[Rfam]
MIR8565 microRNA precursor family: a 154-nucleotide sequence from Amborella trichopoda.
The match comes from Rfam's covariance-model search (144 bits).
Pairs were carried over by alignment from the consensus structure, which was predicted with RNAalifold.

RNA sequence: CCCCUACCCAUGUGUGUAGGACCCCAAAAGAUCACCAUUAAAUUUGGUACAUAUCUCUAAAAAAAUUAUCACAUGGGUGUGAGACUUGACUUUUUUAGAAAUCCGUACCAAAUUUAAUGAUGAUCCUUUGGGGUCCUACACACAUGGAUAGGGG
Number, nucleotide and partner (000 for none) at each position: 001c000002c153003c152004c151005u150006a149007c000008c147009c146010a145011u144012g143013u142014g000015u140016g139017u138018a137019g136020g135021a134022c133023c132024c131025c130026a129027a128028a127029a000030g125031a124032u123033c000034a121035c000036c119037a118038u117039u116040a115041a114042a113043u112044u111045u110046g109047g108048u107049a106050c105051a000052u000053a102054u101055c000056u099057c098058u097059a096060a095061a094062a093063a092064a091065a000066u089067u088068a087069u082070c081071a080072c079073a078074u000075g000076g000077g000078u073079g072080u071081g070082a069083g000084a000085c000086u000087u068088g067089a066090c000091u064092u063093u062094u061095u060096u059097a058098g057099a056100a000101a054102u053103c000104c000105g050106u049107a048108c047109c046110a045111a044112a043113u042114u041115u040116a039117a038118u037119g036120a000121u034122g000123a032124u031125c030126c000127u028128u027129u026130g025131g024132g023133g022134u021135c020136c019137u018138a017139c016140a015141c000142a013143c012144a011145u010146g009147g008148a000149u006150a005151g004152g003153g002154g000